[Rfam]
RNA sequence: CCGCACCCAUCCACGACCCGUAACGGCAGGAACGGGGGACCCACAGGAAUUCCGCCUGUUCCGGUUCCCGGAACGGCUAGGGGUAAAGCCGCGUUCCGACGCGGCCGGGCAGCUCCAGCCCGCACCCGACAGCUCACCUCGUAGGCGCCGGAGAGGAAUU
Numbered sequence: 001c002c003g004c005a006c007c008c009a010u011c012c013a014c015g016a017c018c019c020g021u022a023a024c025g026g027c028a029g030g031a032a033c034g035g036g037g038g039a040c041c042c043a044c045a046g047g048a049a050u051u052c053c054g055c056c057u058g059u060u061c062c063g064g065u066u067c068c069c070g071g072a073a074c075g076g077c078u079a080g081g082g083g084u085a086a087a088g089c090c091g092c093g094u095u096c097c098g099a100c101g102c103g104g105c106c107g108g109g110c111a112g113c114u115c116c117a118g119c120c121c122g123c124a125c126c127c128g129a130c131a132g133c134u135c136a137c138c139u140c141g142u143a144g145g146c147g148c149c150g151g152a153g154a155g156g157a158a159u160u
Stems, first nucleotide, its partner, number of pairs: 001145002007030002032142006042080001081127003089104004107121004
c-di-AMP riboswitch aptamer (ydaO/yuaA leader): a 160-nucleotide sequence from Streptomyces fumanus. Gene Ontology terms of the family: cyclic-di-AMP binding and regulation of gene expression.